A member of the RNA family "DUF2800 RNA", 177 nucleotides long.
RNA sequence: GUCCCCAGUAUGACGUUAAACUGCUGACUCAUACAUACUGACACCGGUUGCUCAACAGGCUGUGUGGGACAAUAGAAUAACAAGGCUGUCAAUUUGAGCUUGACGGCUGCAAACCGAAUGGAGUGAAAUCCCUUCUGGAGUGCAGUCUGAUUUGUUAUGCCAUUUUGCAGCCGGGCG
Numbered sequence: 001g002u003c004c005c006c007a008g009u010a011u012g013a014c015g016u017u018a019a020a021c022u023g024c025u026g027a028c029u030c031a032u033a034c035a036u037a038c039u040g041a042c043a044c045c046g047g048u049u050g051c052u053c054a055a056c057a058g059g060c061u062g063u064g065u066g067g068g069a070c071a072a073u074a075g076a077a078u079a080a081c082a083a084g085g086c087u088g089u090c091a092a093u094u095u096g097a098g099c100u101u102g103a104c105g106g107c108u109g110c111a112a113a114c115c116g117a118a119u120g121g122a123g124u125g126a127a128a129u130c131c132c133u134u135c136u137g138g139a140g141u142g143c144a145g146u147c148u149g150a151u152u153u154g155u156u157a158u159g160c161c162a163u164u165u166u167g168c169a170g171c172c173g174g175g176c177g
Stems, first nucleotide, its partner, number of pairs: 028068005034062002038058003041048002050099006084172006106146005121134003125130001
The sequence is in the family's curated seed alignment.